mir-451 microRNA precursor family: a 71-nucleotide RNA sequence from Aquarana catesbeiana. Pairs were carried over by alignment from the consensus structure, which was predicted with RNAalifold.
RNA sequence: GUAGAGUCGGCGAUUAAACCGUUACCAUUACUGAGUUUAGUAAUGGUAAGGGUUCUAUUGCUGCUCUAAUA
Numbered sequence: 001g002u003a004g005a006g007u008c009g010g011c012g013a014u015u016a017a018a019c020c021g022u023u024a025c026c027a028u029u030a031c032u033g034a035g036u037u038u039a040g041u042a043a044u045g046g047u048a049a050g051g052g053u054u055c056u057a058u059u060g061c062u063g064c065u066c067u068a069a070u071a
Stems, first nucleotide, its partner, number of pairs: 008063002011060003017054004022049012